The family of this 94-nucleotide sequence is "PhotoRC-II RNA". The family's RNA type in Rfam is cis-regulatory element.
RNA sequence: UCGUCAAUAUUUGCUCCCGCUAACCAAGACCUAUGGGAGGAUAAAUUACGUCUUCAUAUCCAGUAGUGAGGGAUUACUGGAAAUAAGUUUCGCA
Dot-bracket structure: .............(((((........[[[[....)))))..........]]]].....(((((((.........))))))).............
Numbered sequence: 001u002c003g004u005c006a007a008u009a010u011u012u013g014c015u016c017c018c019g020c021u022a023a024c025c026a027a028g029a030c031c032u033a034u035g036g037g038a039g040g041a042u043a044a045a046u047u048a049c050g051u052c053u054u055c056a057u058a059u060c061c062a063g064u065a066g067u068g069a070g071g072g073a074u075u076a077c078u079g080g081a082a083a084u085a086a087g088u089u090u091c092g093c094a
Stems, first nucleotide, its partner, number of pairs: 014039005027053004059081007